[Rfam]
RNA sequence: UGUCUCCUCCACCUCUCAAAUGGUGGAUUCGCCCCGCAGUCAGCAAUGACUACGGGGCUUUUUUC
Numbered sequence: 001u002g003u004c005u006c007c008u009c010c011a012c013c014u015c016u017c018a019a020a021u022g023g024u025g026g027a028u029u030c031g032c033c034c035c036g037c038a039g040u041c042a043g044c045a046a047u048g049a050c051u052a053c054g055g056g057g058c059u060u061u062u063u064u065c
Stems, first nucleotide, its partner, number of pairs: 008027006031058006038051005
Dot-bracket structure: .......((((((........))))))...((((((.(((((....))))).)))))).......
The record is a 65-nucleotide RNA from Lampropedia aestuarii, which matches "Betaproteobacteria toxic small RNA" in Rfam. About the family: Overexpression in amino aid rich medium attenuates growth, suggesting role in repressing amino acid intake and metabolism. The family has 51 seed sequences and 951 matches in Rfam 15.1. A search with the family's covariance model found it, with a score of 51 bits.